[Rfam]
RNA sequence: ACUGCCUCUAGGGGCACUGCAGGUGUGGCUAUUGUGUCACAUGUGCACUACUAGGUGGCAGAUAGAGGCUAUGCCUACAUUCACUGUUCUGACCUGUGAACAUCUGAAUGACUAAUAGCCUAACAUU
Numbered sequence: 001a002c003u004g005c006c007u008c009u010a011g012g013g014g015c016a017c018u019g020c021a022g023g024u025g026u027g028g029c030u031a032u033u034g035u036g037u038c039a040c041a042u043g044u045g046c047a048c049u050a051c052u053a054g055g056u057g058g059c060a061g062a063u064a065g066a067g068g069c070u071a072u073g074c075c076u077a078c079a080u081u082c083a084c085u086g087u088u089c090u091g092a093c094c095u096g097u098g099a100a101c102a103u104c105u106g107a108a109u110g111a112c113u114a115a116u117a118g119c120c121u122a123a124c125a126u127u
Stems, first nucleotide, its partner, number of pairs: 002061005007055005013049002019046003024041006066121007078110002081107003085102005